The family of this 109-nucleotide sequence from Candidatus Enterococcus dunnyi is "trpB ncRNA motif". Rfam's curators write: trpB ncRNA motif was reported as a strong cis regulatory motif candidate, with potential to be a cis regulatory riboswitch type, it have been identified in Firmicutes and Fusobacteria. The motif have been recognised upstream of an uncharacterized ABC transporter with strong homology to amino acid transporters. It is also occasionally located upstream of trpB gene, that codes for a tryptophan synthase. A reference for the family is Narunsky et al. (2024), "The discovery of novel noncoding RNAs in 50 bacterial genomes", Nucleic Acids Res. The match comes from Rfam's covariance-model search (60 bits).
RNA sequence: CUCAUAGAUACAACGAAUUAGAAUUUUUUCUAAAGUUUGUAUCUAUGUCGGUUUAUUAAAAAUGAUUUCUGACCGCAUAGAUGUUUGAUCUAUGCGGUUUUUGUUUAAA
Numbered sequence: 001c002u003c004a005u006a007g008a009u010a011c012a013a014c015g016a017a018u019u020a021g022a023a024u025u026u027u028u029u030c031u032a033a034a035g036u037u038u039g040u041a042u043c044u045a046u047g048u049c050g051g052u053u054u055a056u057u058a059a060a061a062a063u064g065a066u067u068u069c070u071g072a073c074c075g076c077a078u079a080g081a082u083g084u085u086u087g088a089u090c091u092a093u094g095c096g097g098u099u100u101u102u103g104u105u106u107a108a109a
Stems, first nucleotide, its partner, number of pairs: 003047009015037001018033004072098011
Lineage of the source: Bacteria > Bacilli > Lactobacillales > Enterococcaceae > Enterococcus.